[Rfam]
RNA sequence: CGUACGAAAUGGCAAAAUCAUUGAAAGAUGAUGACGCAAAACUAUAGGGGCUAAGGUUUCAAGAAACUAAGCCAGCCAGUUUCCGAA
Numbered sequence: 001c002g003u004a005c006g007a008a009a010u011g012g013c014a015a016a017a018u019c020a021u022u023g024a025a026a027g028a029u030g031a032u033g034a035c036g037c038a039a040a041a042c043u044a045u046a047g048g049g050g051c052u053a054a055g056g057u058u059u060c061a062a063g064a065a066a067c068u069a070a071g072c073c074a075g076c077c078a079g080u081u082u083c084c085g086a087a
Base pairs, nucleotide, nucleotide: 012037013036017032018031019030020029021028022027040081041080042079043078047077048076049073050072051071056067057066058065059064

This 87-nucleotide RNA sequence from Bacillus sp. cl95 belongs to the Rfam family "c-di-GMP-I riboswitch aptamer". NCBI's taxonomy places the organism under Bacteria, Bacillota, Caryophanales, Bacillaceae, Bacillus. The family's consensus secondary structure is taken from published work. Rfam's curators write: GEMM was predicted in a large-scale screen for bacterial structured RNA regulatory elements. Genes associated with GEMM are involved in a diverse array of functions, including chemotaxis regulation, signal transduction, secretion and chitin. Its family is annotated with cyclic-di-GMP binding in the Gene Ontology.